[Rfam]
RNA sequence: GCCGAGCUAAGUAGCGUUAGCUUGUGACUCAAGUGAGGGCAUUAGAUUGGUGGAACAAUGGCUCCACUCACUUGGUAGGGCUGGCCAUGUGCAUAUUGCUGGCUUGCCCGUUUCAAGUUGGGAGUUGGGUCAUGUGACUUGGGCGAAGGCUUGAGUCAUUUAACUCCUAUAGUGGAGGGCACCGCGUAAGGCUGGCUUCACAGAGCAACGAGAACCUCCCGCUCUCAACGGUGGAAGGAUAACGAGCUGGUGCACUGUCAGCCCAUCAAUGCCUGGUGGUCAAUGCCUGGUGGGUUGAGAUCAAUUGA
Numbered sequence: 001g002c003c004g005a006g007c008u009a010a011g012u013a014g015c016g017u018u019a020g021c022u023u024g025u026g027a028c029u030c031a032a033g034u035g036a037g038g039g040c041a042u043u044a045g046a047u048u049g050g051u052g053g054a055a056c057a058a059u060g061g062c063u064c065c066a067c068u069c070a071c072u073u074g075g076u077a078g079g080g081c082u083g084g085c086c087a088u089g090u091g092c093a094u095a096u097u098g099c100u101g102g103c104u105u106g107c108c109c110g111u112u113u114c115a116a117g118u119u120g121g122g123a124g125u126u127g128g129g130u131c132a133u134g135u136g137a138c139u140u141g142g143g144c145g146a147a148g149g150c151u152u153g154a155g156u157c158a159u160u161u162a163a164c165u166c167c168u169a170u171a172g173u174g175g176a177g178g179g180c181a182c183c184g185c186g187u188a189a190g191g192c193u194g195g196c197u198u199c200a201c202a203g204a205g206c207a208a209c210g211a212g213a214a215c216c217u218c219c220c221g222c223u224c225u226c227a228a229c230g231g232u233g234g235a236a237g238g239a240u241a242a243c244g245a246g247c248u249g250g251u252g253c254a255c256u257g258u259c260a261g262c263c264c265a266u267c268a269a270u271g272c273c274u275g276g277u278g279g280u281c282a283a284u285g286c287c288u289g290g291u292g293g294g295u296u297g298a299g300a301u302c303a304a305u306u307g308a
Stems, first nucleotide, its partner, number of pairs: 001040003004023007028037003043308001045306007056292002060287001063283001066280001068279005074273004078264008087256001089255003099250008108238002111236005117229009127166004132161001134159011167172001174219005183212001185210003192203003
Rfam assigns this 308-nucleotide RNA sequence from Malus baccata to the family "Plant signal recognition particle RNA".
Rfam 15.1 lists 4,988 matches to the family in 266 species.
Rfam classes the family as a non-coding RNA gene.
Pairs were carried over by alignment from the consensus structure, which is taken from published work.